[Rfam]
RNA sequence: UGGCGAUAAAGGCACACCCGGCGUGAGCCGGGCUCGCAAAGCUACGGGUCUCCGUUCCAGGAGACGGCCGGGUACCGAA
Numbered sequence: 001u002g003g004c005g006a007u008a009a010a011g012g013c014a015c016a017c018c019c020g021g022c023g024u025g026a027g028c029c030g031g032g033c034u035c036g037c038a039a040a041g042c043u044a045c046g047g048g049u050c051u052c053c054g055u056u057c058c059a060g061g062a063g064a065c066g067g068c069c070g071g072g073u074a075c076c077g078a079a
Base pairs, nucleotide, nucleotide: 012037013036017032018031019030020029021028022027040073042072043071045070046069047068048065049064050063051062052061053060
Background
Rfam assigns this 79-nucleotide sequence from Steroidobacter agaridevorans to the family "c-di-GMP-I riboswitch aptamer". The family's consensus secondary structure is taken from published work. About the family: GEMM was predicted in a large-scale screen for bacterial structured RNA regulatory elements. Genes associated with GEMM are involved in a diverse array of functions, including chemotaxis regulation, signal transduction, secretion and chitin. The organism belongs to Steroidobacter, within Bacteria.